[Rfam]
Shown here is a 431-nucleotide part of an RNA from Falseniella ignava, a member of the family "Bacterial large subunit ribosomal RNA". The match comes from Rfam's covariance-model search (2860 bits).

RNA sequence: CUCUCCGAAAUAUAUUUAGGUAUAGCCUCAAAGUGAGAGCGAUGGAGGUAGAGCACUGUUUGAAUGCGGGGGCCUUAUGGUUUACCAAGUUCAGAUAAACUCCGAAUGCCAUUGUCUUAUCUUUGGGAGUCAGACUGCGAGUGAUAAGAUCCGUAGUCAAAAGGGAAACAGCCCAGACCACCAGCUAAGGUCCCUAAGUAUCAGUUAAGUGGAAAAGGAUGUGGAGUUGCCCAGACAACUAGGAGGUUGGCUUAGAAGCAGCCACCCUUGAAAGAGUGCGUAAUAGCUCACUAGUCGAGUGACUCUGCGCCGAAAAUGUACCGGGGCUAAACUGAACACCGAAGCUGUGGAUCCGUAAGGAUGGUAGGAGAGCGUUCUAUAGGCGGUGAAGCCAUACCGUGAGGAGUGGUGGAGCGUAUAGAAGUGAGAAU
Numbered sequence: 001c002u003c004u005c006c007g008a009a010a011u012a013u014a015u016u017u018a019g020g021u022a023u024a025g026c027c028u029c030a031a032a033g034u035g036a037g038a039g040c041g042a043u044g045g046a047g048g049u050a051g052a053g054c055a056c057u058g059u060u061u062g063a064a065u066g067c068g069g070g071g072g073c074c075u076u077a078u079g080g081u082u083u084a085c086c087a088a089g090u091u092c093a094g095a096u097a098a099a100c101u102c103c104g105a106a107u108g109c110c111a112u113u114g115u116c117u118u119a120u121c122u123u124u125g126g127g128a129g130u131c132a133g134a135c136u137g138c139g140a141g142u143g144a145u146a147a148g149a150u151c152c153g154u155a156g157u158c159a160a161a162a163g164g165g166a167a168a169c170a171g172c173c174c175a176g177a178c179c180a181c182c183a184g185c186u187a188a189g190g191u192c193c194c195u196a197a198g199u200a201u202c203a204g205u206u207a208a209g210u211g212g213a214a215a216a217g218g219a220u221g222u223g224g225a226g227u228u229g230c231c232c233a234g235a236c237a238a239c240u241a242g243g244a245g246g247u248u249g250g251c252u253u254a255g256a257a258g259c260a261g262c263c264a265c266c267c268u269u270g271a272a273a274g275a276g277u278g279c280g281u282a283a284u285a286g287c288u289c290a291c292u293a294g295u296c297g298a299g300u301g302a303c304u305c306u307g308c309g310c311c312g313a314a315a316a317u318g319u320a321c322c323g324g325g326g327c328u329a330a331a332c333u334g335a336a337c338a339c340c341g342a343a344g345c346u347g348u349g350g351a352u353c354c355g356u357a358a359g360g361a362u363g364g365u366a367g368g369a370g371a372g373c374g375u376u377c378u379a380u381a382g383g384c385g386g387u388g389a390a391g392c393c394a395u396a397c398c399g400u401g402a403g404g405a406g407u408g409g410u411g412g413a414g415c416g417u418a419u420a421g422a423a424g425u426g427a428g429a430a431u
Base pairs, nucleotide, nucleotide: 001372002371003370004369005368006367011024012023013022014021015020026129027127028126029125030124031123032122033121036120037117039115040114041113042112043111044110045109051103052101053100057097058096059095061093062092063091064090068086069085070083071082072081073080074079133158134157135156136155137154138153139152141150142149163174164173165172178350179349180348181347183346184345185344189340190339191338198337201335202334203333204332205331217311218310221308222307223306224305225304226303227302228301229300230299238295239294240293241292242291244268245267246266249263250262251261269273274289278287279286351362352361353360354359373426375423376422377421378420379419380418381417383415384414391410392409393408394407395406397404398403